[Rfam]
RNA sequence: CUCGCCAAGCCUCUUAGCAAUGCUCAAAUAGGUGAGG
Number, nucleotide and partner (000 for none) at each position: 001c036002u035003c034004g033005c032006c031007a000008a024009g023010c022011c000012u000013c000014u000015u000016a000017g000018c000019a000020a000021u000022g010023c009024u008025c000026a000027a000028a000029u000030a000031g006032g005033u004034g003035a002036g001037g000